Source information
The family of this 68-nucleotide RNA from Caenorhabditis briggsae is "mir-234 microRNA precursor family". A reference for the family is Lim et al. (2003), "The microRNAs of Caenorhabditis elegans", Genes Dev. The sequence is in the family's curated seed alignment. The family's consensus secondary structure was predicted with RNAalifold.

RNA sequence: UCAAACGGUAUUCCUGAGUGAAUAAUAAAAAUGAGUCCAUUCUAUUAUUGCUCGAGAAUACCCUUUGA
Numbered sequence: 001u002c003a004a005a006c007g008g009u010a011u012u013c014c015u016g017a018g019u020g021a022a023u024a025a026u027a028a029a030a031a032u033g034a035g036u037c038c039a040u041u042c043u044a045u046u047a048u049u050g051c052u053c054g055a056g057a058a059u060a061c062c063c064u065u066u067g068a
Stems, first nucleotide, its partner, number of pairs: 008061006017052003021049007

About this RNA:
Rfam 15.1 lists 45 matches to the family in 42 species.